The record is a 162-nucleotide sequence from Youxingia wuxianensis, which matches "Ribosomal protein L10 leader" in Rfam.
The family's RNA type in Rfam is cis-regulatory leader.
Pairs were carried over by alignment from the consensus structure, which was predicted with CMfinder.
NCBI's taxonomy places the organism under Bacteria, Bacillati, Bacillota, Eubacteriales, Youxingia.
[Rfam]
RNA sequence: UUAUAAUAAAGCUGUCAUCCUAAGACAGCAGGUGUCUUAUUAGACGUAAAAGGGUUACCCUGCCUGCCGAGGAAAGACUCCAUAGAAGAUGGCUGGAAGGUUUCCAGCGGUUUUGUAUGCUCUUUCUGCGGUAGAAGCAGGAAGGGCUUUUUUAGUAUAUUU
Numbered sequence: 001u002u003a004u005a006a007u008a009a010a011g012c013u014g015u016c017a018u019c020c021u022a023a024g025a026c027a028g029c030a031g032g033u034g035u036c037u038u039a040u041u042a043g044a045c046g047u048a049a050a051a052g053g054g055u056u057a058c059c060c061u062g063c064c065u066g067c068c069g070a071g072g073a074a075a076g077a078c079u080c081c082a083u084a085g086a087a088g089a090u091g092g093c094u095g096g097a098a099g100g101u102u103u104c105c106a107g108c109g110g111u112u113u114u115g116u117a118u119g120c121u122c123u124u125u126c127u128g129c130g131g132u133a134g135a136a137g138c139a140g141g142a143a144g145g146g147c148u149u150u151u152u153u154a155g156u157a158u159a160u161u162u
Stems, first nucleotide, its partner, number of pairs: 028067006034045003119147010